[Rfam]
A member of the RNA family "mraW RNA" from Cisticola juncidis, 118 nucleotides long. Rfam classes the family as a cis-regulatory element. Lineage of the source: Eukaryota > Opisthokonta > Metazoa > Deuterostomia > Cisticola.

RNA sequence: GUUCUCACAUCGCUCCUGCUCGCUCCGCACCCCCACCUGGCACAGGGCAGAGAUGGGAACAUCUCUGCCCUGUGCCAGGUGGGGGUGCGGAGCGAGCAGGAGCGAGCAGGAACACACA
Numbered sequence: 001g002u003u004c005u006c007a008c009a010u011c012g013c014u015c016c017u018g019c020u021c022g023c024u025c026c027g028c029a030c031c032c033c034c035a036c037c038u039g040g041c042a043c044a045g046g047g048c049a050g051a052g053a054u055g056g057g058a059a060c061a062u063c064u065c066u067g068c069c070c071u072g073u074g075c076c077a078g079g080u081g082g083g084g085g086u087g088c089g090g091a092g093c094g095a096g097c098a099g100g101a102g103c104g105a106g107c108a109g110g111a112a113c114a115c116a117c118a
Base pairs, nucleotide, nucleotide: 010105011104012103013102014101015100016099018097019096021094022093023092024091025090026089027088028087029086030085031084032083033082034081035080036079037078038077039076040075041074042073043072044071045070046069047068048067049066050065051064052063053062054061055060